[Rfam]
RNA sequence: GGUCACGAGUGACAGCGUCGAUGGGCCCCGGCCCGCUGUCCGGCAACCCUCCGUCGCGGCGGGGUGCCCCGGGUGAUGACCGGGCCGUGGACAGCAGGGUCCAUGGCAAGUGCGGCCC
Numbered sequence: 001g002g003u004c005a006c007g008a009g010u011g012a013c014a015g016c017g018u019c020g021a022u023g024g025g026c027c028c029c030g031g032c033c034c035g036c037u038g039u040c041c042g043g044c045a046a047c048c049c050u051c052c053g054u055c056g057c058g059g060c061g062g063g064g065u066g067c068c069c070c071g072g073g074u075g076a077u078g079a080c081c082g083g084g085c086c087g088u089g090g091a092c093a094g095c096a097g098g099g100u101c102c103a104u105g106g107c108a109a110g111u112g113c114g115g116c117c118c
Stems, first nucleotide, its partner, number of pairs: 001081004009041001011040006024033002042068003047064003051059002084107009
The record is a 118-nucleotide RNA sequence from Streptomyces zhaozhouensis, which matches "SAM (S-adenosyl methionine) riboswitch aptamer" in Rfam.
For this family Rfam cites "The aptamer core of SAM-IV riboswitches mimics the ligand-binding site of SAM-I riboswitches" (Weinberg et al., RNA, 2008).
Rfam's curators write: SAM-IV is a mRNA element that regulates gene expression via direct sensing of S-adenosylmethionine (SAM or AdoMet). SAM-IV riboswitches share conserved nucleotide positions with the previously described SAM-I riboswitches sequence analysis and molecular recognition experiments suggest that SAM-I and SAM-IV riboswitches share similar ligand binding sites, but have different scaffolds.
The base pairs follow the family's consensus structure, which is taken from published work.
The family is grouped with related families in Rfam's "SAM clan".
Its family is annotated with S-adenosylmethionine metabolic process and regulation of gene expression in the Gene Ontology.
The family has 40 seed sequences and 2,360 matches in Rfam 15.1.